The family of this 69-nucleotide sequence from Astyanax mexicanus is "Small nucleolar RNA SNORD75".
Rfam 15.1 lists 767 matches to the family in 616 species.
The organism belongs to Astyanax, within Eukaryota.
Rfam classes the family as a C/D-box small nucleolar RNA.
The match comes from Rfam's covariance-model search (68 bits).
The base pairs follow the family's consensus structure, which was predicted with RNAalifold.

RNA sequence: AGCCUGUGAUGAAUAAAAAGAAUAAGAGUAGUGGACAGAAGUGGUUUCUGAUAACUCUAUUCUGAGGCU
Numbered sequence: 001a002g003c004c005u006g007u008g009a010u011g012a013a014u015a016a017a018a019a020g021a022a023u024a025a026g027a028g029u030a031g032u033g034g035a036c037a038g039a040a041g042u043g044g045u046u047u048c049u050g051a052u053a054a055c056u057c058u059a060u061u062c063u064g065a066g067g068c069u
Stems, first nucleotide, its partner, number of pairs: 001069004